Shown here is a 65-nucleotide RNA sequence from Tianweitania populi, a member of the family "terC RNA". The base pairs follow the family's consensus structure, which is taken from published work.
[Rfam]
Nucleotides: 065
Stems, first nucleotide, its partner, number of pairs: 006059002010056004023048005029041003
Number, partner (000 for none) and nucleotide at each position: 001000a002000c003000g004000u005000a006059g007058c008000g009000a010056c011055c012054g013053g014000g015000c016000c017000c018000c019000u020000c021000u022000g023048g024047c025046g026045a027044u028000c029041c030040g031039c032000g033000c034000a035000u036000c037000g038000a039031g040030c041029g042000c043000a044027a045026u046025c047024g048023u049000g050000a051000u052000g053013u054012c055011g056010g057000a058007g059006c060000u061000g062000c063000a064000c065000c
Record summary:
It is annotated as a cis-regulatory element. It scores 46 bits against the family's covariance model. Rfam 15.1 lists 1,112 matches to the family in 772 species.